[Rfam]
RNA sequence: AUUGUAAACUCAAGGCCAUAGCAAAAGUGCUCAUGGUGUGACCUGUCAGAUUUCAAUGAAUCAGCAAAUUCUGCU
Numbered sequence: 001a002u003u004g005u006a007a008a009c010u011c012a013a014g015g016c017c018a019u020a021g022c023a024a025a026a027g028u029g030c031u032c033a034u035g036g037u038g039u040g041a042c043c044u045g046u047c048a049g050a051u052u053u054c055a056a057u058g059a060a061u062c063a064g065c066a067a068a069u070u071c072u073g074c075u
Stems, first nucleotide, its partner, number of pairs: 014043002017040001020075004025070002027039003047064001049062005

A member of the RNA family "Mammalian CPEB3 ribozyme" from Alligator mississippiensis, 75 nucleotides long. Its family is annotated with RNA nuclease activity in the Gene Ontology. The base pairs follow the family's consensus structure, which is taken from published work. Taxonomically the source falls in Alligator (Eukaryota, Deuterostomia, Gnathostomata, Sarcopterygii).